[Rfam]
RNA sequence: CGUAAGGAAAGCGCAAGCUUUGAGCAUUGACAACGCUCCGGCCCCAGUCCCCCAGGUUAUGGGAGAAUAACCCCGACGUGCUGGAAGGGCA
Numbered sequence: 001c002g003u004a005a006g007g008a009a010a011g012c013g014c015a016a017g018c019u020u021u022g023a024g025c026a027u028u029g030a031c032a033a034c035g036c037u038c039c040g041g042c043c044c045c046a047g048u049c050c051c052c053c054a055g056g057u058u059a060u061g062g063g064a065g066a067a068u069a070a071c072c073c074c075g076a077c078g079u080g081c082u083g084g085a086a087g088g089g090c091a
Stems, first nucleotide, its partner, number of pairs: 002048002006044002008021005022038004027033001056077002060075003080090003
RNA: Insect-Specific Flavivirus 3' UTR repeats Ra and Rb elements
Organism: Culex flavivirus